[Rfam]
Nucleotides: 146
Base pairs, nucleotide, nucleotide: 016129017128018127019125020124021123022122023121024120025119027117028116029115030114031113032112034110035109036108037107038106039105043101044100
Number, partner (000 for none) and nucleotide at each position: 001000g002000a003000u004000u005000g006000a007000g008000g009000a010000u011000a012000a013000g014000g015000g016129c017128a018127g019125c020124a021123g022122g023121g024120a025119a026000c027117a028116g029115g030114u031113a032112g033000a034110g035109c036108a037107u038106g039105g040000a041000u042000g043101g044100a045000g046000c047000c048000c049000u050000c051000a052000a053000c054000a055000g056000a057000u058000u059000g060000a061000a062000a063000u064000c065000a066000a067000c068000u069000a070000g071000c072000c073000u074000u075000u076000g077000c078000c079000u080000u081000a082000u083000c084000c085000u086000u087000u088000u089000c090000c091000u092000g093000u094000u095000g096000u097000g098000c099000c100044u101043c102000u103000a104000c105039u106038c107037a108036u109035g110034c111000a112032c113031u114030g115029u116028c117027u118000c119025u120024u121023c122022c123021c124020u125019g126000g127018c128017u129016g130000c131000c132000c133000u134000c135000a136000u137000a138000u139000u140000c141000c142000a143000u144000c145000c146000c
Annotation
MIR408 microRNA precursor family: a 146-nucleotide RNA from Cucurbita maxima. Pairs were carried over by alignment from the consensus structure, which was predicted with WAR. On this family, see Sunkar and Zhu, Plant Cell 2004: "Novel and stress-regulated microRNAs and other small RNAs from Arabidopsis". Lineage of the source: Eukaryota > Magnoliopsida > Cucurbitales > Cucurbitaceae > Cucurbita.